[Rfam]
RNA sequence: UUUAGUGGGUAGCCUAAUCUUCUACCGCUUGCGUUGAAGAACGGAGGAACCAAAGUUCGGGGCGAAUCUCUAUAUAUGAGAAAGAUACCUUCCAAUCUUAGCCCGUCAGCUAACUUCGUAGGCAAUGGAAGGAGUACCU
Numbered sequence: 001u002u003u004a005g006u007g008g009g010u011a012g013c014c015u016a017a018u019c020u021u022c023u024a025c026c027g028c029u030u031g032c033g034u035u036g037a038a039g040a041a042c043g044g045a046g047g048a049a050c051c052a053a054a055g056u057u058c059g060g061g062g063c064g065a066a067u068c069u070c071u072a073u074a075u076a077u078g079a080g081a082a083a084g085a086u087a088c089c090u091u092c093c094a095a096u097c098u099u100a101g102c103c104c105g106u107c108a109g110c111u112a113a114c115u116u117c118g119u120a121g122g123c124a125a126u127g128g129a130a131g132g133a134g135u136a137c138c139u
Stems, first nucleotide, its partner, number of pairs: 012123003018040005041119006051059001060104003068080003083098004
c-di-AMP riboswitch aptamer (ydaO/yuaA leader): a 139-nucleotide sequence from Gloeocapsa sp. PCC 7428. Lineage of the source: Bacteria > Cyanobacteriota > Cyanophyceae > Chroococcidiopsidales > Gloeocapsa. Rfam links the family to the GO terms cyclic-di-AMP binding and regulation of gene expression. The match comes from Rfam's covariance-model search (78 bits).